[Rfam]
RNA sequence: AAUUGAUAUGAUGAUGAGAUUAUAUCCCUAUUGGGUUGAUUGGCUGCCAUGAUGGCCUCAUCUGUAUUUAGCUCUAUCUGAUCAUGU
Numbered sequence: 001a002a003u004u005g006a007u008a009u010g011a012u013g014a015u016g017a018g019a020u021u022a023u024a025u026c027c028c029u030a031u032u033g034g035g036u037u038g039a040u041u042g043g044c045u046g047c048c049a050u051g052a053u054g055g056c057c058u059c060a061u062c063u064g065u066a067u068u069u070a071g072c073u074c075u076a077u078c079u080g081a082u083c084a085u086g087u
Stems, first nucleotide, its partner, number of pairs: 004084002038059001042057004
Source information:
A member of the RNA family "Small nucleolar RNA Z102/R77" from Brachypodium distachyon, 87 nucleotides long. A search with the family's covariance model found it, with a score of 72 bits. The family has 9 seed sequences and 1,346 matches in Rfam 15.1. The family is grouped with related families in Rfam's "SNORD44 clan". Rfam classes the family as a C/D-box small nucleolar RNA. The family's consensus secondary structure was predicted with PFOLD.